[Rfam]
RNA: THF (Tetrahydrofolate) riboswitch aptamer
RNA sequence: AGCAGAGUAGGUCAGGAAGCGUUAAGUACCAUCUGAACGGGGAGUUGUCAGACGGGCGAAAAGUUUAUCUUGCGGUUUCCUGGUCGCAUCCCGCUGUU
Numbered sequence: 001a002g003c004a005g006a007g008u009a010g011g012u013c014a015g016g017a018a019g020c021g022u023u024a025a026g027u028a029c030c031a032u033c034u035g036a037a038c039g040g041g042g043a044g045u046u047g048u049c050a051g052a053c054g055g056g057c058g059a060a061a062a063g064u065u066u067a068u069c070u071u072g073c074g075g076u077u078u079c080c081u082g083g084u085c086g087c088a089u090c091c092c093g094c095u096g097u098u
Stems, first nucleotide, its partner, number of pairs: 001098005010085010020074003026057002029055002032052005040091003044087001061071003